[Rfam]
RNA: Bacterial RNase P class A
RNA sequence: UGAGCUCGCUGGGCAAUCGCCGCUUUGCUGGCCCUCCGGGGUGGCCAAGGGGAGGAAAGUCCGGGCUCCAUAGGGCAAGGUGCCAGGUAACGCCUGGGCGGCGCGAGCCGACGGAAAGUGCAGCAGAAAGGAUACCGCCCGGUCACUGCGGUGAUUGGGUAAGGGUGAAAUGGUGCGGUAAGAGCGCACCGCGUGGCUGGCAACAGUCCACGGCGAUGGCAAACCCCACCUGGAGCAAGACCAAAUAGGAGUCCGACGGUGCGGCCCGCACUGGACUCGGGUAGGUCGCUUGAGGCCUGUGGUAACGCAGGUCCUAGAUGAAUGGUUGCCCCCGACAGAACCCGGCUUACAGGCGAGCUCAUUCU
Numbered sequence: 001u002g003a004g005c006u007c008g009c010u011g012g013g014c015a016a017u018c019g020c021c022g023c024u025u026u027g028c029u030g031g032c033c034c035u036c037c038g039g040g041g042u043g044g045c046c047a048a049g050g051g052g053a054g055g056a057a058a059g060u061c062c063g064g065g066c067u068c069c070a071u072a073g074g075g076c077a078a079g080g081u082g083c084c085a086g087g088u089a090a091c092g093c094c095u096g097g098g099c100g101g102c103g104c105g106a107g108c109c110g111a112c113g114g115a116a117a118g119u120g121c122a123g124c125a126g127a128a129a130g131g132a133u134a135c136c137g138c139c140c141g142g143u144c145a146c147u148g149c150g151g152u153g154a155u156u157g158g159g160u161a162a163g164g165g166u167g168a169a170a171u172g173g174u175g176c177g178g179u180a181a182g183a184g185c186g187c188a189c190c191g192c193g194u195g196g197c198u199g200g201c202a203a204c205a206g207u208c209c210a211c212g213g214c215g216a217u218g219g220c221a222a223a224c225c226c227c228a229c230c231u232g233g234a235g236c237a238a239g240a241c242c243a244a245a246u247a248g249g250a251g252u253c254c255g256a257c258g259g260u261g262c263g264g265c266c267c268g269c270a271c272u273g274g275a276c277u278c279g280g281g282u283a284g285g286u287c288g289c290u291u292g293a294g295g296c297c298u299g300u301g302g303u304a305a306c307g308c309a310g311g312u313c314c315u316a317g318a319u320g321a322a323u324g325g326u327u328g329c330c331c332c333c334g335a336c337a338g339a340a341c342c343c344g345g346c347u348u349a350c351a352g353g354c355g356a357g358c359u360c361a362u363u364c365u
Stems, first nucleotide, its partner, number of pairs: 001361010011350001012330007020052002023049003027045004057348003061345005066235004073267004078231005083097005098112001099110004113226002118224002120220002135164002137160009172190006191214001192212005197206003239287004249278006258272005294313008